Rfam assigns this 101-nucleotide RNA sequence from Penicillium coprophilum to the family "Small nucleolar RNA Z13/snr52". The family's consensus secondary structure was predicted with PFOLD. The organism belongs to Penicillium, within Eukaryota.
RNA sequence: AUUGAUCAAAUGACGAAAAAUUCUCGGAUGUAAACUCACAGACCUGUUCUGAAUGCGCAAAACCGUGUAGAGAUUUCCGUUGCCUUCCUUCUGAUGAUCAA
Numbered sequence: 001a002u003u004g005a006u007c008a009a010a011u012g013a014c015g016a017a018a019a020a021u022u023c024u025c026g027g028a029u030g031u032a033a034a035c036u037c038a039c040a041g042a043c044c045u046g047u048u049c050u051g052a053a054u055g056c057g058c059a060a061a062a063c064c065g066u067g068u069a070g071a072g073a074u075u076u077c078c079g080u081u082g083c084c085u086u087c088c089u090u091c092u093g094a095u096g097a098u099c100a101a
Base pairs, nucleotide, nucleotide: 003100004099005098025079026078027077028076
Rfam links the family to the GO terms nucleolus and RNA processing.